[Rfam]
RNA sequence: AAAUUUGAACGGAGACCUCUUUUGCGAUUCACACUUGUGUUUUUGAUUUAAUCAAAAACACAAGUGUGAAUCGCAAAAGAGGUCUCCGUUCAAAUUU
Number, nucleotide and partner (000 for none) at each position: 001a000002a096003a095004u000005u000006u092007g091008a000009a089010c088011g087012g086013a085014g084015a083016c082017c081018u080019c079020u078021u077022u000023u075024g074025c073026g072027a071028u070029u069030c068031a067032c066033a000034c064035u063036u000037g061038u060039g059040u058041u057042u056043u055044u054045g053046a052047u000048u000049u000050a000051a000052u046053c045054a044055a043056a042057a041058a040059c039060a038061c037062a000063a035064g034065u000066g032067u031068g030069a029070a028071u027072c026073g025074c024075a023076a000077a021078a020079g019080a018081g017082g016083u015084c014085u013086c012087c011088g010089u009090u000091c007092a006093a000094a000095u003096u002097u000

This 97-nucleotide sequence from Apolygus lucorum belongs to the Rfam family "mir-1684 microRNA precursor family". The match comes from Rfam's covariance-model search (60 bits). The source organism's lineage runs through Eukaryota, Hexapoda, Eumetabola, Paraneoptera and Apolygus. Rfam links the family to the GO terms RISC complex and miRNA-mediated post-transcriptional gene silencing.